Shown here is a 377-nucleotide RNA sequence from Tritonibacter horizontis, a member of the family "Alphaproteobacteria transfer-messenger RNA".
Rfam links the family to the GO term RNA catabolic process.
By type it is a non-coding RNA gene.
Lineage of the source: Bacteria > Pseudomonadati > Alphaproteobacteria > Paracoccaceae > Tritonibacter.
[Rfam]
RNA sequence: CCUCUUUAACUCCGGCGCCGCACGACCUAUAUAUGUGUCGUUCCCUUGGGAACUAUGGACAUAAACGCGCUCAUAAUAAACGGAUCGGACCCGGGGGCGGUACCCGGCGGCUCCACCAACCUACCACUGGCUGUUUCUUUCGUUUGAAGAGAUUGUUCAGGACUGUGGGGCCGAAAUAGGAUCGACGGACGUCUAAAAGGGUUAGCUUUGUCUCGGCUGUCUGCCACCGUUACCGGCGAAAACAGUACAAUUGCAAACGACAAUCGUGCUCCGGUUGCUCUGGCUGCGUAAGCAGUUCGAGUCGAACCGAACUUAAGUCCUUGGGCCUAGCAGCGUAAGGCGGGGUUCGCAGGUACCUGGCAACAGAAACCUGCACU
Numbered sequence: 001c002c003u004c005u006u007u008a009a010c011u012c013c014g015g016c017g018c019c020g021c022a023c024g025a026c027c028u029a030u031a032u033a034u035g036u037g038u039c040g041u042u043c044c045c046u047u048g049g050g051a052a053c054u055a056u057g058g059a060c061a062u063a064a065a066c067g068c069g070c071u072c073a074u075a076a077u078a079a080a081c082g083g084a085u086c087g088g089a090c091c092c093g094g095g096g097g098c099g100g101u102a103c104c105c106g107g108c109g110g111c112u113c114c115a116c117c118a119a120c121c122u123a124c125c126a127c128u129g130g131c132u133g134u135u136u137c138u139u140u141c142g143u144u145u146g147a148a149g150a151g152a153u154u155g156u157u158c159a160g161g162a163c164u165g166u167g168g169g170g171c172c173g174a175a176a177u178a179g180g181a182u183c184g185a186c187g188g189a190c191g192u193c194u195a196a197a198a199g200g201g202u203u204a205g206c207u208u209u210g211u212c213u214c215g216g217c218u219g220u221c222u223g224c225c226a227c228c229g230u231u232a233c234c235g236g237c238g239a240a241a242a243c244a245g246u247a248c249a250a251u252u253g254c255a256a257a258c259g260a261c262a263a264u265c266g267u268g269c270u271c272c273g274g275u276u277g278c279u280c281u282g283g284c285u286g287c288g289u290a291a292g293c294a295g296u297u298c299g300a301g302u303c304g305a306a307c308c309g310a311a312c313u314u315a316a317g318u319c320c321u322u323g324g325g326c327c328u329a330g331c332a333g334c335g336u337a338a339g340g341c342g343g344g345g346u347u348c349g350c351a352g353g354u355a356c357c358u359g360g361c362a363a364c365a366g367a368a369a370c371c372u373g374c375a376c377u
Base pairs, nucleotide, nucleotide: 040053041052042051043050044049057213058212059211060210061209067206068205069202070201071200072199081191082190085188086187087186091107092106093105094104095103108173109172110171111170112169113168114167115166116165214229215228216227220239221238223237224236225235343358344357345356346355349374350373351372352371353370354369